Lysine riboswitch aptamer: a 170-nucleotide RNA from Enterococcus cecorum. A search with the family's covariance model found it, with a score of 80 bits. From the family's description: Riboswitches are metabolite binding domains within certain messenger RNAs that serve as precision sensors for their corresponding targets. The base pairs follow the family's consensus structure, which is taken from published work. The literature on the family includes a 2003 paper in Cell by Mandal et al., "Riboswitches Control Fundamental Biochemical Pathways in Bacillus subtilis and Other Bacteria". Taxonomically the source falls in Enterococcus cecorum (Bacteria, Bacillota, Bacilli, Lactobacillales).
RNA sequence: UUAAAAAGUAGAGGUCGCAGGAUUUAUUAAGCUUAUGGAGUCAAGCAAGACGUGGAAGUAAGUCUAGGAAAUACUGCCGAAACCAUUCUUUAUUGCUUGAAAGAAUGUGUUGGGGUGCAAGUGAAUAAUUUGCACACUGUCUUAGUUUUCUAAGAUGAGCUAUGUUUAGU
Number, nucleotide and partner (000 for none) at each position: 001u000002u000003a000004a000005a000006a165007a000008g163009u162010a161011g160012a000013g000014g000015u000016c000017g077018c076019a075020g074021g000022a072023u071024u070025u069026a000027u000028u000029a000030a000031g063032c062033u061034u060035a059036u058037g000038g000039a000040g000041u000042c000043a000044a000045g000046c000047a000048a000049g000050a000051c000052g000053u000054g000055g000056a000057a000058g036059u035060a034061a033062g032063u031064c000065u000066a000067g000068g000069a025070a024071a023072u022073a000074c020075u019076g018077c017078c000079g000080a000081a111082a110083c109084c107085a106086u105087u104088c103089u102090u101091u100092a000093u000094u000095g000096c000097u000098u000099g000100a091101a090102a089103g088104a087105a086106u085107g084108u000109g083110u082111u081112g138113g137114g000115g135116u134117g133118c132119a131120a130121g129122u128123g000124a000125a000126u000127a000128a122129u121130u120131u119132g118133c117134a116135c115136a000137c113138u112139g000140u155141c154142u153143u152144a151145g150146u000147u000148u000149u000150c145151u144152a143153a142154g141155a140156u000157g000158a000159g000160c011161u010162a009163u008164g000165u006166u000167u000168a000169g000170u000